[Rfam]
RNA sequence: UAUCCUUUCUAAUUGGGAUAAGUCUAUGGAGAGUGCGUUGGGUGUGAGCCCAGGGUGCGAAGCAACCGGAUAAUGUAAUUCGUUGGUUUAAACUCCUAUGACCAAUGUUUGCUAGACUAGAUUUAUAUGGUUAGCGAAAGCAAACUGCAUAUUAUUAGGCCU
Numbered sequence: 001u002a003u004c005c006u007u008u009c010u011a012a013u014u015g016g017g018a019u020a021a022g023u024c025u026a027u028g029g030a031g032a033g034u035g036c037g038u039u040g041g042g043u044g045u046g047a048g049c050c051c052a053g054g055g056u057g058c059g060a061a062g063c064a065a066c067c068g069g070a071u072a073a074u075g076u077a078a079u080u081c082g083u084u085g086g087u088u089u090a091a092a093c094u095c096c097u098a099u100g101a102c103c104a105a106u107g108u109u110u111g112c113u114a115g116a117c118u119a120g121a122u123u124u125a126u127a128u129g130g131u132u133a134g135c136g137a138a139a140g141c142a143a144a145c146u147g148c149a150u151a152u153u154a155u156u157a158g159g160c161c162u
Stems, first nucleotide, its partner, number of pairs: 002019005027068003033058004038053006082099002085096002100123002103120001109116002127155005
A member of the RNA family "Group II catalytic intron D1-D4-7" from Nitzschia inconspicua, 162 nucleotides long. About the family: Group II introns are found in rRNA, tRNA and mRNA of organelles in fungi, plants and protists, and also in mRNA in bacteria. A reference for the family is Bonen and Vogel (2001), "The ins and outs of group II introns", Trends Genet. Lineage of the source: Eukaryota > Bacillariophycidae > Bacillariales > Bacillariaceae > Nitzschia.